The record is a 92-nucleotide RNA sequence from Paraphotobacterium marinum, which matches "t44 RNA" in Rfam. By type it is a small RNA. Rfam's curators write: This family consists of a number of bacterial RNA genes of between 135 and 170 bases in length. The t44 gene has been identified in several species of enteric bacteria but homologs have also been identified in Pseudomonas and Coxiella species. The t44 gene is found between the map and rpsB genes in all species in the full alignment apart from Shigella flexneri. The function of this RNA is unknown.
[Rfam]
RNA sequence: GUUACAAAAAAUUAAAACCACACAUAUCGACACAUUUUUCGGGGUGCUUUUUUUGAAAUAAGUCGAAAAAUGGGAUCAUGUGAACGAAUAAC
Number, nucleotide and partner (000 for none) at each position: 001g000002u000003u000004a000005c000006a000007a000008a000009a000010a000011a000012u000013u000014a000015a000016a000017a000018c000019c000020a000021c082022a081023c080024a079025u078026a076027u075028c074029g000030a000031c000032a000033c072034a071035u070036u069037u068038u067039u066040c065041g064042g000043g000044g000045u000046g063047c062048u061049u060050u000051u000052u000053u000054u000055g000056a000057a000058a000059u000060a049061a048062g047063u046064c041065g040066a039067a038068a037069a036070a035071u034072g033073g000074g028075a027076u026077c000078a025079u024080g023081u022082g021083a000084a000085c000086g000087a000088a000089u000090a000091a000092c000